Shown here is an 87-nucleotide RNA from Veronia pacifica, a member of the family "Glycine riboswitch aptamer".
This family represents the bacterial glycine riboswitch.
Rfam links the family to the GO term glycine biosynthetic process.
[Rfam]
RNA sequence: UUGAAAACAGCAGGAGAGAGAUGGCAUUGCCAUCCGCCGACGAAGUAAAUCUUUCAGGCACUUAAUUGUAUGGACUGCUGUUGGAGG
Numbered sequence: 001u002u003g004a005a006a007a008c009a010g011c012a013g014g015a016g017a018g019a020g021a022u023g024g025c026a027u028u029g030c031c032a033u034c035c036g037c038c039g040a041c042g043a044a045g046u047a048a049a050u051c052u053u054u055c056a057g058g059c060a061c062u063u064a065a066u067u068g069u070a071u072g073g074a075c076u077g078c079u080g081u082u083g084g085a086g087g
Stems, first nucleotide, its partner, number of pairs: 006082008020034004036059003039055002043053003